The family of this 74-nucleotide sequence from Pelagimonas phthalicica is "Singlet oxygen resistance RNA X".
[Rfam]
RNA sequence: UCCCGUCGCUUGUGCGGGUUAUCACAAGCACCUCCCUGUUGGACUAAGCCGGGCCUGCGUGCCCGGCCUUUUUU
Numbered sequence: 001u002c003c004c005g006u007c008g009c010u011u012g013u014g015c016g017g018g019u020u021a022u023c024a025c026a027a028g029c030a031c032c033u034c035c036c037u038g039u040u041g042g043a044c045u046a047a048g049c050c051g052g053g054c055c056u057g058c059g060u061g062c063c064c065g066g067c068c069u070u071u072u073u074u
Stems, first nucleotide, its partner, number of pairs: 008029007048067007

A reference for the family is Peng et al. (2016), "Regulation of a polyamine transporter by the conserved 3' UTR-derived sRNA SorX confers resistance to singlet oxygen and organic hydroperoxides in Rhodobacter sphaeroides", RNA Biol. Its family is annotated with response to photooxidative stress in the Gene Ontology. The match comes from Rfam's covariance-model search (78 bits). About the family: SorX (RSs2461)like SorY is a singlet oxygen induced sRNA that counteracts oxidative stress by targeting mRNA for a transporter in Rhodobacter. It also has an impact on resistance against organic hydroperoxides. It targets SD sequence of potA mRNA via an aSD sequence. The aSD sequence and some neighbouring nucleotides are identical to the one of SorY (targets takP mRNA).